[Rfam]
RNA sequence: AACAGUUACAAUACAAAUCUUCCCGAUAGGGUUCACUUUAUUAAAAGUGAAAAUGCCUUGUAACCAAAUUGAAAUAUGGGGGAAUAUAAAUG
Numbered sequence: 001a002a003c004a005g006u007u008a009c010a011a012u013a014c015a016a017a018u019c020u021u022c023c024c025g026a027u028a029g030g031g032u033u034c035a036c037u038u039u040a041u042u043a044a045a046a047g048u049g050a051a052a053a054u055g056c057c058u059u060g061u062a063a064c065c066a067a068a069u070u071g072a073a074a075u076a077u078g079g080g081g082g083a084a085u086a087u088a089a090a091u092g
Base pairs, nucleotide, nucleotide: 020084021083022082023081024080028058029057030056032051033050034049035048036047037046038045064079065078